[Rfam]
RNA sequence: UUGCACAGCAAACACCCAAGUGUGCUUUAUAGUUCACUUGGCUUUGACGCUGUGCUAGAGCAAUGUCUGUUCUUUUCCUCUGCAUUGAAAGGUAUAUUCUAUUCUUUCAAAUGUAUUCAGAAAGUCAGCACAUCA
Number, nucleotide and partner (000 for none) at each position: 001u000002u000003g055004c054005a053006c052007a051008g050009c000010a000011a000012a000013c046014a045015c000016c041017c040018a039019a038020g037021u000022g035023u000024g033025c032026u031027u000028u000029a000030u000031a026032g025033u024034u000035c022036a000037c020038u019039u018040g017041g016042c000043u000044u000045u014046g013047a000048c000049g000050c008051u007052g006053u005054g004055c003056u000057a073058g072059a071060g070061c069062a068063a000064u000065g000066u000067c000068u062069g061070u060071u059072c058073u057074u000075u000076u000077c000078c000079u121080c120081u119082g118083c113084a112085u111086u110087g108088a107089a106090a105091g104092g103093u000094a000095u000096a000097u000098u000099c000100u000101a000102u000103u092104c091105u090106u089107u088108c087109a000110a086111a085112u084113g083114u000115a000116u000117u000118c082119a081120g080121a079122a000123a000124g000125u000126c000127a000128g000129c000130a000131c000132a000133u000134c000135a000